[Rfam]
This 176-nucleotide sequence from Syntrophotalea carbinolica belongs to the Rfam family "Group II catalytic intron D1-D4-3". It scores 151 bits against the family's covariance model. The organism belongs to Syntrophotalea carbinolica, within Bacteria.
RNA sequence: UCCACCGCGAGGUGGAAUCUGAAGGAAGCUGUAGGCAAACUUCCGGCCCGACGAACAGGAAUCGCAUACGAGGCAGUGCCAUCCGGGCGAGAAGGCCAUAGUCUUCAAAGCCCGAUAGUCAUCCGGGAGGGUGGUGCUGUAUAUGCGGCGGGUAUGUGGAAGGAAGGUCACGCGUC
Numbered sequence: 001u002c003c004a005c006c007g008c009g010a011g012g013u014g015g016a017a018u019c020u021g022a023a024g025g026a027a028g029c030u031g032u033a034g035g036c037a038a039a040c041u042u043c044c045g046g047c048c049c050g051a052c053g054a055a056c057a058g059g060a061a062u063c064g065c066a067u068a069c070g071a072g073g074c075a076g077u078g079c080c081a082u083c084c085g086g087g088c089g090a091g092a093a094g095g096c097c098a099u100a101g102u103c104u105u106c107a108a109a110g111c112c113c114g115a116u117a118g119u120c121a122u123c124c125g126g127g128a129g130g131g132u133g134g135u136g137c138u139g140u141a142u143a144u145g146c147g148g149c150g151g152g153u154a155u156g157u158g159g160a161a162g163g164a165a166g167g168u169c170a171c172g173c174g175u176c
Base pairs, nucleotide, nucleotide: 001016002015003014004013005012006011028176030174031173032172035168036167040162041161042160043159044158045157046153047152048151049150050149062148063147064146065145066144067143073140074139075138077136078135079134080133081132082131083130085113086112087111088110091106092105093104094103